[Rfam]
RNA sequence: UGAAACUUGUCGGAGUGCCACAUGGCUGAGACCGUAUUACGGGAUCCGUUGAACCUGAUCAGGCUAAUACCUGCGAAGGGAACAAGAGAAAAUCUUCU
Numbered sequence: 001u002g003a004a005a006c007u008u009g010u011c012g013g014a015g016u017g018c019c020a021c022a023u024g025g026c027u028g029a030g031a032c033c034g035u036a037u038u039a040c041g042g043g044a045u046c047c048g049u050u051g052a053a054c055c056u057g058a059u060c061a062g063g064c065u066a067a068u069a070c071c072u073g074c075g076a077a078g079g080g081a082a083c084a085a086g087a088g089a090a091a092a093u094c095u096u097c098u
Stems, first nucleotide, its partner, number of pairs: 006086005011048004016042001017026003033041003054079003060073004
RNA: TPP riboswitch aptamer (THI element)